Shown here is a 507-nucleotide sequence from Streptomyces triculaminicus, a member of the family "Saccharopolyspora sRNA 350". Taxonomically the source falls in Streptomyces (Bacteria, Bacillati, Kitasatosporales, Streptomycetaceae).

RNA sequence: CGGACGGUGAAGUGCCAGGUGGCGUCGGGCUCGAGGGGCACGCGCUCGCCGAAGUAAUCGCCGUCGGCCAGGGUGCCGAGGGAGGUCUCGUCGCCGUAUUUGCCCGUGCCGGUCCUGGCGAGUUUGCCGUGGGCGAUCAGGAAGACGUGAUCGGCGGGCUGCCCCUCGGCCACGAGCGUGUCGCCCACCGCGUACUCCCGCUGGACGAACGCGUCCGCCAGUGCCUCGAGCGUCUCGGCGUCCGAGAACCCGCGCAGCAGCGGCAGUUCACCCAGCUCCGGCGGGAUGACCCGGACCUCCGAGCCCGUCGAGACGAACUCGACGCGGCCGUCGCCGACGGUGUAGGUCAGCCGCCGGUUGACCCGGUAGGUGCCGGCCGACACCUGGACCCAGGGCAGCACGCGCAGCAGCCAGCGCGAGGAGAUCCCGCGCAUCUGGGGUACGGACUUGGUGGUCGUCGCGAGCUGACGUGCCGCGUCCGUGCCGAGGCUCAGCUGGGCCUGUGCC
Numbered sequence: 001c002g003g004a005c006g007g008u009g010a011a012g013u014g015c016c017a018g019g020u021g022g023c024g025u026c027g028g029g030c031u032c033g034a035g036g037g038g039c040a041c042g043c044g045c046u047c048g049c050c051g052a053a054g055u056a057a058u059c060g061c062c063g064u065c066g067g068c069c070a071g072g073g074u075g076c077c078g079a080g081g082g083a084g085g086u087c088u089c090g091u092c093g094c095c096g097u098a099u100u101u102g103c104c105c106g107u108g109c110c111g112g113u114c115c116u117g118g119c120g121a122g123u124u125u126g127c128c129g130u131g132g133g134c135g136a137u138c139a140g141g142a143a144g145a146c147g148u149g150a151u152c153g154g155c156g157g158g159c160u161g162c163c164c165c166u167c168g169g170c171c172a173c174g175a176g177c178g179u180g181u182c183g184c185c186c187a188c189c190g191c192g193u194a195c196u197c198c199c200g201c202u203g204g205a206c207g208a209a210c211g212c213g214u215c216c217g218c219c220a221g222u223g224c225c226u227c228g229a230g231c232g233u234c235u236c237g238g239c240g241u242c243c244g245a246g247a248a249c250c251c252g253c254g255c256a257g258c259a260g261c262g263g264c265a266g267u268u269c270a271c272c273c274a275g276c277u278c279c280g281g282c283g284g285g286a287u288g289a290c291c292c293g294g295a296c297c298u299c300c301g302a303g304c305c306c307g308u309c310g311a312g313a314c315g316a317a318c319u320c321g322a323c324g325c326g327g328c329c330g331u332c333g334c335c336g337a338c339g340g341u342g343u344a345g346g347u348c349a350g351c352c353g354c355c356g357g358u359u360g361a362c363c364c365g366g367u368a369g370g371u372g373c374c375g376g377c378c379g380a381c382a383c384c385u386g387g388a389c390c391c392a393g394g395g396c397a398g399c400a401c402g403c404g405c406a407g408c409a410g411c412c413a414g415c416g417c418g419a420g421g422a423g424a425u426c427c428c429g430c431g432c433a434u435c436u437g438g439g440g441u442a443c444g445g446a447c448u449u450g451g452u453g454g455u456c457g458u459c460g461c462g463a464g465c466u467g468a469c470g471u472g473c474c475g476c477g478u479c480c481g482u483g484c485c486g487a488g489g490c491u492c493a494g495c496u497g498g499g500c501c502u503g504u505g506c507c
Stems, first nucleotide, its partner, number of pairs: 006390003011385002018328001021325001025322005031316002039312001040308003047303001049301001051299002054231002060224002064220001065111004075103001077102004082097001084095003117219004122214002126212002129210002132206001134204001136202001140198002143196002148192002153189002156186004160178002164174001166172001232296003237290001239288004249283001251281001254278001256277003260271001262269001329342004351379001353377005361371003391431001394428002397425001399423001401421001403418003407415001437476001439474002442471003448464002451461002480503002484499002487496002